[Rfam]
Rfam assigns this 136-nucleotide RNA sequence from Durio zibethinus to the family "Small nucleolar RNA snoR111".
By type it is an H/ACA-box small nucleolar RNA.
NCBI's taxonomy places the organism under Eukaryota, Spermatophyta, Malvaceae, Helicteroideae, Durio.
The literature on the family includes a 2002 paper in Curr Biol by Marker et al., "Experimental RNomics: identification of 140 candidates for small non-messenger RNAs in the plant Arabidopsis thaliana".

RNA sequence: AAAAGAGUGAGGAGGCAGUUUAUAAGAUUUGUCUCUUCAUACGGAAGAAUAUUGAGGAAUAUCAAAAUCAAAGGCCGAGAUAUCGUUUCAUUCGUCAUUUUUCUCCAUUGACGAUCUGAUUGUUGCUCGUCCACAU
Numbered sequence: 001a002a003a004a005g006a007g008u009g010a011g012g013a014g015g016c017a018g019u020u021u022a023u024a025a026g027a028u029u030u031g032u033c034u035c036u037u038c039a040u041a042c043g044g045a046a047g048a049a050u051a052u053u054g055a056g057g058a059a060u061a062u063c064a065a066a067a068u069c070a071a072a073g074g075c076c077g078a079g080a081u082a083u084c085g086u087u088u089c090a091u092u093c094g095u096c097a098u099u100u101u102u103c104u105c106c107a108u109u110g111a112c113g114a115u116c117u118g119a120u121u122g123u124u125g126c127u128c129g130u131c132c133a134c135a136u
Base pairs, nucleotide, nucleotide: 007042008041009040011038012035013034014033015032016031017030073132074131076129077128078127079126082120083119084118085117092114093113094112095111096110097109099107